[Rfam]
RNA sequence: CUCUUAUCAAGAGAGGUGGAGGGAAAGGGCCCUAUGAAACCCGGCAACCGGUGCUAAUGCAUUAUGGUGCCAAUUCCUGCAGUAAAUCUGCGAGAUAAGAG
Dot-bracket structure: ((((((((....(.(((...(((...[[[)))......))))((((.((((((......))))..))))))...(]]].(((.....)))..)))))))))
RNA: SAM riboswitch aptamer (S box leader)